[Rfam]
A member of the RNA family "c-di-GMP-I riboswitch aptamer" from Thermotalea metallivorans, 83 nucleotides long. NCBI's taxonomy places the organism under Bacteria, Bacillati, Peptostreptococcales, Thermotaleaceae, Thermotalea.
Nucleotides: 083
Base pairs, nucleotide, nucleotide: 012037013036017032018031019030020029021028022027040077041076042075043074046072047071049067050066055062056061
Number, partner (000 for none) and nucleotide at each position: 001000a002000a003000c004000c005000g006000u007000a008000a009000a010000g011000g012037g013036c014000a015000a016000a017032c018031c019030u020029g021028u022027u023000g024000a025000a026000a027022g028021g029020c030019a031018g032017g033000g034000a035000u036013g037012c038000a039000a040077a041076g042075c043074c044000a045000a046072g047071g048000u049067u050066c051000u052000a053000a054000a055062g056061c057000a058000u059000u060000u061056g062055c063000u064000a065000u066050g067049a068000u069000a070000g071047c072046c073000g074043g075042g076041c077040u078000g079000u080000c081000g082000a083000a
About the family: GEMM was predicted in a large-scale screen for bacterial structured RNA regulatory elements. Genes associated with GEMM are involved in a diverse array of functions, including chemotaxis regulation, signal transduction, secretion and chitin. The match comes from Rfam's covariance-model search (74 bits).